[Rfam]
RNA: HgcC family RNA
Organism: Archaeoglobus profundus
RNA sequence: GAGGGUCGCUCUGACCCGGCCCAAUGACACAAACCGAAGGCUAUGACUCCGUCGUGAGACGGGGCAAGAGCCGGUUCCCCUAUGGGGAACCUUCCCGCUUUAGCGGGAAGAGGAGGUCAGGUUACCCCCGUUA
Numbered sequence: 001g002a003g004g005g006u007c008g009c010u011c012u013g014a015c016c017c018g019g020c021c022c023a024a025u026g027a028c029a030c031a032a033a034c035c036g037a038a039g040g041c042u043a044u045g046a047c048u049c050c051g052u053c054g055u056g057a058g059a060c061g062g063g064g065c066a067a068g069a070g071c072c073g074g075u076u077c078c079c080c081u082a083u084g085g086g087g088a089a090c091c092u093u094c095c096c097g098c099u100u101u102a103g104c105g106g107g108a109a110g111a112g113g114a115g116g117u118c119a120g121g122u123u124a125c126c127c128c129c130g131u132u133a
Stems, first nucleotide, its partner, number of pairs: 003022006039072004049062005074090005091110008